A member of the RNA family "Small nucleolar RNA SNORD45" from Varanus komodoensis, 79 nucleotides long. Taxonomically the source falls in Varanus (Eukaryota, Deuterostomia, Tetrapoda, Squamata). The literature on the family includes a 1996 paper in Cell by Kiss-Laszlo et al., "Site-specific ribose methylation of preribosomal RNA: a novel function for small nucleolar RNAs". Rfam 15.1 lists 1,629 matches to the family in 521 species. It scores 48 bits against the family's covariance model. Rfam links the family to the GO terms nucleolus and RNA processing.

[Rfam]
RNA sequence: GAUCUCUGACUUUAUGCAUAUAUUCUGACUUUAAAGUUGAUGUUUUGCCGCUUUAGCUCUAGAAUUACUCUGAGAUCUG
Numbered sequence: 001g002a003u004c005u006c007u008g009a010c011u012u013u014a015u016g017c018a019u020a021u022a023u024u025c026u027g028a029c030u031u032u033a034a035a036g037u038u039g040a041u042g043u044u045u046u047g048c049c050g051c052u053u054u055a056g057c058u059c060u061a062g063a064a065u066u067a068c069u070c071u072g073a074g075a076u077c078u079g
Stems, first nucleotide, its partner, number of pairs: 001077006